Rfam assigns this 48-nucleotide RNA from Streptococcus constellatus to the family "uup RNA". It is one of the family's seed sequences. Taxonomically the source falls in Streptococcus constellatus subsp. pharyngis (Bacteria, Bacillota, Bacilli, Streptococcus).
RNA sequence: ACAAACUUAACUCUGUACACAUAAAACCGAUGAAACAUUGUACAGAGU
Numbered sequence: 001a002c003a004a005a006c007u008u009a010a011c012u013c014u015g016u017a018c019a020c021a022u023a024a025a026a027c028c029g030a031u032g033a034a035a036c037a038u039u040g041u042a043c044a045g046a047g048u
Stems, first nucleotide, its partner, number of pairs: 011047005017041003